[Rfam]
RNA sequence: GAAACCCUGCUUGGGAAGACUCUAGCCAAGUCACCAAUAGCGAGUCUUGGAGCUUUAAGGGUAACCUUACGGUUUAAGCGUAGACAGUCAGAUAGUAGGCCGUGUGAUUGAGCCUCGAAAGACGUACAAAAAUGGAAAGGUCGACGGAUUUUGAGCUCUCGGAAGACUACAGGAUAAGCAGCGCAACAGGCGAGUUGCUUAUCCCUUUCCCGGGGUCAGAGAGCA
Numbered sequence: 001g002a003a004a005c006c007c008u009g010c011u012u013g014g015g016a017a018g019a020c021u022c023u024a025g026c027c028a029a030g031u032c033a034c035c036a037a038u039a040g041c042g043a044g045u046c047u048u049g050g051a052g053c054u055u056u057a058a059g060g061g062u063a064a065c066c067u068u069a070c071g072g073u074u075u076a077a078g079c080g081u082a083g084a085c086a087g088u089c090a091g092a093u094a095g096u097a098g099g100c101c102g103u104g105u106g107a108u109u110g111a112g113c114c115u116c117g118a119a120a121g122a123c124g125u126a127c128a129a130a131a132a133u134g135g136a137a138a139g140g141u142c143g144a145c146g147g148a149u150u151u152u153g154a155g156c157u158c159u160c161g162g163a164a165g166a167c168u169a170c171a172g173g174a175u176a177a178g179c180a181g182c183g184c185a186a187c188a189g190g191c192g193a194g195u196u197g198c199u200u201a202u203c204c205c206u207u208u209c210c211c212g213g214g215g216u217c218a219g220a221g222a223g224c225a
Base pairs, nucleotide, nucleotide: 011037012036013035014034018032019031021029023193025191026190040088041087044085045084046083047082048080049079050075051074052073053072054071056069057068058067059066060065109219110217112216113215114214115213116212117211134210135209136208137207138206139205140167141166142165145161146160147159172204173203174202175201176200177199178198179197180196181195182194
RNA: Group II catalytic intron D1-D4-6
Organism: Paenibacillus prosopidis